[Rfam]
RNA sequence: AGGUGUCUGGCCUUCUGAAGAGGUCAUGGCCUACUAUUGCCUGAAGAAACGUCA
Numbered sequence: 001a002g003g004u005g006u007c008u009g010g011c012c013u014u015c016u017g018a019a020g021a022g023g024u025c026a027u028g029g030c031c032u033a034c035u036a037u038u039g040c041c042u043g044a045a046g047a048a049a050c051g052u053c054a
Stems, first nucleotide, its partner, number of pairs: 009025005
RNA: algC RNA